TPP riboswitch aptamer (THI element): a 113-nucleotide RNA from Streptomyces sp. TLI_235.
The source organism's lineage runs through Bacteria, Bacillati, Kitasatosporales, Streptomycetaceae and Streptomyces.
Nucleotides: 113
Base pairs, nucleotide, nucleotide: 010097011063012062013061014060017032018031019030020029021028039057040056041055042054043053044052045051046050069094070093071092075088076087077086078085
Number, partner (000 for none) and nucleotide at each position: 001000u002000g003000c004000a005000c006000a007000c008000c009000a010097c011063a012062c013061g014060g015000g016000a017032g018031c019030c020029c021028g022000g023000u024000g025000c026000a027000c028021c029020g030019g031018g032017c033000u034000g035000a036000g037000a038000g039057g040056c041055g042054g043053g044052c045051u046050g047000g048000a049000g050046c051045g052044g053043c054042c055041c056040g057039c058000g059000a060014c061013c062012g063011u064000c065000c066000g067000a068000a069094c070093c071092u072000g073000a074000u075088c076087c077086g078085g079000g080000u081000c082000a083000u084000g085078c086077c087076g088075g089000c090000g091000a092071a093070g094069g095000g096000a097010g098000a099000a100000u101000c102000a103000g104000c105000g106000a107000c108000g109000u110000g111000g112000c113000a

The match comes from Rfam's covariance-model search (57 bits).